Shown here is a 227-nucleotide sequence from Miscanthus lutarioriparius, a member of the family "MIR6217 microRNA precursor family". A search with the family's covariance model found it, with a score of 171 bits. The family's consensus secondary structure was predicted with RNAalifold. Taxonomically the source falls in Miscanthus (Eukaryota, Streptophyta, Streptophytina, Saccharinae).
[Rfam]
Nucleotides: 227
Stems, first nucleotide, its partner, number of pairs: 001227020022206012037191010050178001052176002055173008065165003069161003072157001074155001080147003087142003091138002093132009103122001108116001
Number, partner (000 for none) and nucleotide at each position: 001227u002226g003225g004224c005223c006222a007221u008220a009219g010218a011217a012216u013215a014214a015213c016212u017211u018210a019209u020208u021000a022206u023205g024204u025203g026202g027201c028200c029199a030198c031197u032196u033195u034000g035000a036000g037191u038190u039189a040188c041187g042186a043185u044184a045183a046182u047000u048000a049000c050178u051000a052176u053175g054000c055173u056172a057171a058170u059169u060168u061167a062166c063000c064000a065165g066164a067163u068000u069161a070160u071159a072157g073000u074155a075000a076000c077000u078000c079000c080147u081146u082145a083000a084000u085000g086000a087142g088141u089140g090000a091138u092137u093132u094131a095130c096129u097128a098127u099126a100125a101124c102000a103122u104000u105000a106000u107000g108116g109000u110000a111000a112000a113000u114000a115000u116108c117000a118000c119000c120000a121000u122103g123000a124101g125100u126099u127098a128097u129096a130095g131094u132093a133000a134000c135000a136000c137092a138091a139000g140089u141088a142087u143000c144000c145082u146081a147080a148000a149000u150000g151000c152000a153000u154000a155074u156000u157072c158000a159071u160070g161069u162000u163067a164066u165065c166062g167061u168060a169059a170058a171057u172056u173055g174000a175053u176052a177000c178050a179000a180000a181000u182046a183045u184044u185043a186042u187041c188040g189039u190038a191037a192000a193000u194000c195033a196032a197031g198030g199029u200028g201027g202026c203025u204024g205023u206022a207000g208020a209019a210018u211017a212016a213015g214014u215013u216012a217011u218010u219009c220008u221007a222006u223005g224004g225003u226002c227001a